[Rfam]
RNA sequence: GAGCUAUGAAGAAGAUUUUAAAGGAAUCGGAGAGAUUCCAUUGAAGACAUAAGAUCCAACUCUGAGCUUGCUGUCCU
Dot-bracket structure: ((((.............................................................))))........